[Rfam]
RNA sequence: CCUUCGGAGCGCCAAAGAAACGAGAGUAGCUUUUCGCGAAAUCGGGCGCGAUGAACAAGGAA
Number, nucleotide and partner (000 for none) at each position: 001c060002c059003u058004u057005c000006g000007g000008a000009g049010c048011g047012c046013c045014a000015a000016a000017g000018a000019a000020a000021c044022g043023a042024g000025a000026g000027u000028a000029g037030c036031u000032u000033u000034u000035c000036g030037c029038g000039a000040a000041a000042u023043c022044g021045g013046g012047c011048g010049c009050g000051a000052u000053g000054a000055a000056c000057a004058a003059g002060g001061a000062a000
RAGATH-18 RNA: a 62-nucleotide sequence from Anoxybacillus flavithermus. Rfam classes the family as a small RNA. Actinobacteria, Firmicutes, Fusobacteria, Thermotogae (1 example). The family's consensus secondary structure is taken from published work.